The record is an 85-nucleotide sequence from Streptomyces caeruleatus, which matches "nrdJ RNA" in Rfam. The match comes from Rfam's covariance-model search (74 bits). The family's consensus secondary structure is taken from published work. The organism belongs to Streptomyces, within Bacteria. It is annotated as a small RNA.
RNA sequence: ACCUGCUGCGGGCGGCCAUCGGACGGUGCCCGCAGCACUAGACAGAACACGUGCCACGGGGAACAUCGGGGCACUUCAGGGCGUU
Numbered sequence: 001a002c003c004u005g006c007u008g009c010g011g012g013c014g015g016c017c018a019u020c021g022g023a024c025g026g027u028g029c030c031c032g033c034a035g036c037a038c039u040a041g042a043c044a045g046a047a048c049a050c051g052u053g054c055c056a057c058g059g060g061g062a063a064c065a066u067c068g069g070g071g072c073a074c075u076u077c078a079g080g081g082c083g084u085u
Base pairs, nucleotide, nucleotide: 004037005036006035007034008033009032010031011030012029013028014027016026017025051074052073053072054071055070057068058067
Dot-bracket structure: ...(((((((((((.((.......))))))))))))).............(((((.((........)).)))))...........